[Rfam]
Nucleotides: 071
Stems, first nucleotide, its partner, number of pairs: 007065007015057003020052004025047001027045002
Number, partner (000 for none) and nucleotide at each position: 001000g002000c003000g004000a005000a006000u007065c008064u009063u010062u011061u012060u013059g014000c015057g016056g017055u018000c019000u020052g021051g022050g023049c024000u025047u026000g027045c028044u029000g030000u031000c032000c033000c034000u035000c036000c037000c038000c039000c040000a041000g042000c043000c044028a045027g046000g047025a048000a049023g050022c051021c052020c053000u054000u055017a056016c057015c058000c059013c060012a061011a062010a063009a064008a065007g066000c067000a068000u069000u070000c071000g
This 71-nucleotide sequence from Lepidothrix coronata belongs to the Rfam family "mir-129 microRNA precursor family". The family's consensus secondary structure was predicted with RNAalifold. The match comes from Rfam's covariance-model search (84 bits).